[Rfam]
RNA sequence: GUCAACCACUCCCGCCUAUAGAGGCGGAGGCCUGUAAGAGCCUCGAGUUGACUAGCCUCAGCUAGGGGAGGUCAUCGAACUUCCUAUUGGGCUACGUUACCUGUGUCAUGAUACCUUCGGAUGAUGCCCUAGUCUGAAGCUCUAUCGUCCGUAAUCUAAAUAGUUCCGGGGGUAGGAACAGUGAUAUGGACGUGCAAGCACGGGUAACAUUGGCGAAGGGCAAAUAAC
Numbered sequence: 001g002u003c004a005a006c007c008a009c010u011c012c013c014g015c016c017u018a019u020a021g022a023g024g025c026g027g028a029g030g031c032c033u034g035u036a037a038g039a040g041c042c043u044c045g046a047g048u049u050g051a052c053u054a055g056c057c058u059c060a061g062c063u064a065g066g067g068g069a070g071g072u073c074a075u076c077g078a079a080c081u082u083c084c085u086a087u088u089g090g091g092c093u094a095c096g097u098u099a100c101c102u103g104u105g106u107c108a109u110g111a112u113a114c115c116u117u118c119g120g121a122u123g124a125u126g127c128c129c130u131a132g133u134c135u136g137a138a139g140c141u142c143u144a145u146c147g148u149c150c151g152u153a154a155u156c157u158a159a160a161u162a163g164u165u166c167c168g169g170g171g172g173u174a175g176g177a178a179c180a181g182u183g184a185u186a187u188g189g190a191c192g193u194g195c196a197a198g199c200a201c202g203g204g205u206a207a208c209a210u211u212g213g214c215g216a217a218g219g220g221c222a223a224a225u226a227a228c
Stems, first nucleotide, its partner, number of pairs: 001052006010030002012027002015023001032040002055214003060093004096208011111145002115139008125222006147191006154185003160182002163179005
Dot-bracket structure: ((((((...((((.(.......)..)).)).((.....))......))))))..(((..((((..........................))))..(((((((((((....((..((((((((..[[[[[[.))))))))....)).((((((.(((...((.(((((.......))))).)))))))))))......)))))))))))...)))..]]]]]]......
Rfam assigns this 228-nucleotide RNA from Koleobacter methoxysyntrophicus to the family "HNH endonuclease-associated RNA and ORF (HEARO) RNA". By type it is a non-coding RNA gene. It scores 125 bits against the family's covariance model. The family's consensus secondary structure is taken from published work.